[Rfam]
RNA sequence: GAUGGUGGGCCCAUCGCAGGAGAUGACAGGCAUAUCCUGCAAACCACCUUGUGGUGCUUUGCUACGAAAGUACAAGGUGCUGAGCGACAAGGAAAAGGCAGACUGGAUCUGUCAGGU
Numbered sequence: 001g002a003u004g005g006u007g008g009g010c011c012c013a014u015c016g017c018a019g020g021a022g023a024u025g026a027c028a029g030g031c032a033u034a035u036c037c038u039g040c041a042a043a044c045c046a047c048c049u050u051g052u053g054g055u056g057c058u059u060u061g062c063u064a065c066g067a068a069a070g071u072a073c074a075a076g077g078u079g080c081u082g083a084g085c086g087a088c089a090a091g092g093a094a095a096a097g098g099c100a101g102a103c104u105g106g107a108u109c110u111g112u113c114a115g116g117u
Stems, first nucleotide, its partner, number of pairs: 001015005016040006023033003045116001047092006053081002056078003060074002062070002097113006
A member of the RNA family "Group II catalytic intron D1-D4-2" from Dyadobacter jejuensis, 117 nucleotides long. Group II introns are found in rRNA, tRNA and mRNA of organelles in fungi, plants and protists, and also in mRNA in bacteria. Gene Ontology term of the family: Group II intron splicing. The source organism's lineage runs through Bacteria, Pseudomonadati, Cytophagales, Spirosomataceae and Dyadobacter.